[Rfam]
RNA sequence: CUACCUUAAGGCAAAGCGCCUAAACCUAGCGAGCCAGCCUCCGCGGGGUGGCUCCCGACGCCGCAGCCAAUG
Numbered sequence: 001c002u003a004c005c006u007u008a009a010g011g012c013a014a015a016g017c018g019c020c021u022a023a024a025c026c027u028a029g030c031g032a033g034c035c036a037g038c039c040u041c042c043g044c045g046g047g048g049u050g051g052c053u054c055c056c057g058a059c060g061c062c063g064c065a066g067c068c069a070a071u072g
Stems, first nucleotide, its partner, number of pairs: 009040004016034002043064004047059001049057003
Shown here is a 72-nucleotide RNA from Sarcophilus harrisii, a member of the family "p27 cis-regulatory element". The literature on the family includes a 2003 paper in Hum Mol Genet by Gopfert et al., "Cell cycle-dependent translation of p27 involves a responsive element in its 5'-UTR that overlaps with a uORF". Gene Ontology term of the family: regulation of translation. About the family: This family represents a structured G/C rich element located in the 5' UTR of p27 mRNA. This element contributes to cell-cycle regulated translation and when deleted leads to a 50% drop in regulation. The element is thought to be able to form several different structures with similar free energy. It has been suggested that proteins may only bind to a specific structure thus conformational changes could regulate translation.